[Rfam]
Small nucleolar RNA R30/Z108: a 102-nucleotide sequence from Dendrobium catenatum.
The base pairs follow the family's consensus structure, which was predicted with PFOLD.
Its family is annotated with nucleolus and RNA processing in the Gene Ontology.
The literature on the family includes a 2002 paper in Curr Biol by Marker et al., "Experimental RNomics. Identification of 140 Candidates for Small Non-Messenger RNAs in the Plant Arabidopsis thaliana".
RNA sequence: GAAGGCCACUAUGAUGAUAAAGAAGCUCCCUCUUCUGAGAUGUUAUUGAGGACUCUUGCUGGCAGAAUCGAACCAAUUAUUAUUAUCGCCAUCACUGAGUGG
Number, nucleotide and partner (000 for none) at each position: 001g000002a000003a000004g000005g000006c102007c101008a100009c099010u000011a000012u000013g000014a000015u000016g000017a000018u000019a000020a000021a000022g000023a000024a000025g000026c000027u000028c000029c000030c000031u000032c000033u000034u000035c000036u000037g000038a000039g000040a000041u000042g000043u000044u000045a000046u000047u000048g000049a000050g000051g000052a000053c000054u000055c000056u000057u000058g000059c000060u000061g000062g000063c000064a000065g000066a000067a000068u000069c000070g000071a000072a000073c000074c000075a000076a000077u000078u000079a000080u000081u000082a000083u000084u000085a000086u000087c000088g000089c000090c000091a000092u000093c000094a000095c000096u000097g000098a000099g009100u008101g007102g006
Overview: The organism belongs to Dendrobium, within Eukaryota. Rfam's curators write: snoR30 is a C/D box small nucleolar RNA which acts as a methylation guide for 18S ribosomal RNA in plants. Rfam 15.1 lists 626 matches to the family in 219 species.